[Rfam]
RNA: mir-135 microRNA precursor family
Organism: Lepisosteus oculatus
RNA sequence: CUCCUGCUGUGUUCUAUGGCUUUUUAUUCCUACGUGAUUGUAGUCUGGGUUCAUGUAGGGGUAGAAGCCACGAAACACUCGGUGAG
Numbered sequence: 001c002u003c004c005u006g007c008u009g010u011g012u013u014c015u016a017u018g019g020c021u022u023u024u025u026a027u028u029c030c031u032a033c034g035u036g037a038u039u040g041u042a043g044u045c046u047g048g049g050u051u052c053a054u055g056u057a058g059g060g061g062u063a064g065a066a067g068c069c070a071c072g073a074a075a076c077a078c079u080c081g082g083u084g085a086g
Base pairs, nucleotide, nucleotide: 002085003084005082009078010077011076012075013074015072017070018069019068020067021066022065023064026062027061028060029059030058031057032056033055034054035053036052037051